[Rfam]
RNA sequence: AGGCUGUCAUGAUAGACAACAUUUCUCGAUUCUGAUCAGGACCAAAGAAAAUUUAUUGUUCCUUGAUGACAGUGUUUGUGCGUGUCUGAGCCUU
Numbered sequence: 001a002g003g004c005u006g007u008c009a010u011g012a013u014a015g016a017c018a019a020c021a022u023u024u025c026u027c028g029a030u031u032c033u034g035a036u037c038a039g040g041a042c043c044a045a046a047g048a049a050a051a052u053u054u055a056u057u058g059u060u061c062c063u064u065g066a067u068g069a070c071a072g073u074g075u076u077u078g079u080g081c082g083u084g085u086c087u088g089a090g091c092c093u094u
Base pairs, nucleotide, nucleotide: 001093002092003091004090
Shown here is a 94-nucleotide RNA sequence from Lupinus angustifolius, a member of the family "small nucleolar RNA snoR126". Its family is annotated with RNA processing and nucleolus in the Gene Ontology. The literature on the family includes a 2009 paper in Nucleic Acids Res by Chen and Wu, "Mining small RNA sequencing data: a new approach to identify small nucleolar RNAs in Arabidopsis".